[Rfam]
RNA: MIR1120/MIR1122 microRNA precursor family
RNA sequence: GUACUCCCUCUGUAAAGAAAUAUAAGACCUUUUAGAUCACUAAAGUAGUGAUCUAAAAGGUCUUAUAUUUCUUUACAGAGGGAGCAA
Numbered sequence: 001g002u003a004c005u006c007c008c009u010c011u012g013u014a015a016a017g018a019a020a021u022a023u024a025a026g027a028c029c030u031u032u033u034a035g036a037u038c039a040c041u042a043a044a045g046u047a048g049u050g051a052u053c054u055a056a057a058a059g060g061u062c063u064u065a066u067a068u069u070u071c072u073u074u075a076c077a078g079a080g081g082g083a084g085c086a087a
Stems, first nucleotide, its partner, number of pairs: 004084002007081005013075005019069023